A member of the RNA family "SAM riboswitch aptamer (S box leader)" from Virgibacillus sp. MSP4-1, 111 nucleotides long. Lineage of the source: Bacteria > Bacillota > Caryophanales > Bacillaceae > Virgibacillus. A search with the family's covariance model found it, with a score of 81 bits. Gene Ontology term of the family: regulation of gene expression.

Nucleotides: 111
Stems, first nucleotide, its partner, number of pairs: 002110007013043005021032003026084004044076004049072002052068004080103001085100005
Number, partner (000 for none) and nucleotide at each position: 001000a002110u003109c004108u005107u006106a007105u008104c009000c010000a011000g012000a013043g014042a015041g016040g017039u018000g019000g020000a021032g022031g023030g024000a025000a026084a027083u028082g029081g030023c031022c032021c033000u034000u035000g036000g037000a038000a039017g040016c041015c042014u043013c044076g045075g046074c047073a048000g049072c050071g051000g052068g053067u054066u055065c056000u057000u058000u059000u060000u061000u062000a063000a064000a065055g066054a067053a068052u069000a070000c071050u072049g073047u074046g075045c076044c077000a078000a079000a080103u081029c082028c083027a084026u085100c086099a087098a088097g089096u090000c091000a092000g093000u094000g095000u096089g097088c098087u099086u100085g101000a102000a103080a104008g105007a106006u107005a108004a109003g110002a111000g